[Rfam]
RNA: Small nucleolar RNA snR60/Z15/Z230/Z193/J17
Organism: Maylandia zebra
RNA sequence: UCGAUGCAAUGAUGAGUGCAUAGUUCAGCAGAUUAAACUGUGAAGAAUUACUGUUGUCUUUCGCUCCUAGCUGAUGUGUCGG
Dot-bracket structure: ...(((((..................................................................)))))...